[Rfam]
RNA: Small nucleolar RNA SNORD90
RNA sequence: AAUUCCCUUUUUUGUGUCUUAUGAUGAAGCUUCAUAGGGCAGAUUCUGAGCUGAGAAAUAAAAUUUCUCUCCACUGAUACUCUCUAUAUGCCAUCUGAAGACACUACGU
Numbered sequence: 001a002a003u004u005c006c007c008u009u010u011u012u013u014g015u016g017u018c019u020u021a022u023g024a025u026g027a028a029g030c031u032u033c034a035u036a037g038g039g040c041a042g043a044u045u046c047u048g049a050g051c052u053g054a055g056a057a058a059u060a061a062a063a064u065u066u067c068u069c070u071c072c073a074c075u076g077a078u079a080c081u082c083u084c085u086a087u088a089u090g091c092c093a094u095c096u097g098a099a100g101a102c103a104c105u106a107c108g109u
Stems, first nucleotide, its partner, number of pairs: 012106001014104006029094001033090003037083003042078001045077002048074001050072001053069005